Notes:
This 40-nucleotide sequence from Polaribacter reichenbachii belongs to the Rfam family "DUF805b RNA". NCBI's taxonomy places the organism under Bacteria, Bacteroidota, Flavobacteriales, Flavobacteriaceae, Polaribacter. Clan: DUF805 clan. Pairs were carried over by alignment from the consensus structure, which is taken from published work.
[Rfam]
RNA sequence: AUGGUGUAAUCCGAAAAGCCAGUUUUAAAUAGAGUAGGAG
Number, nucleotide and partner (000 for none) at each position: 001a000002u021003g020004g019005u018006g000007u000008a000009a000010u039011c038012c037013g000014a000015a000016a000017a000018g005019c004020c003021a002022g000023u000024u000025u000026u000027a000028a000029a000030u000031a000032g000033a000034g000035u000036a000037g012038g011039a010040g000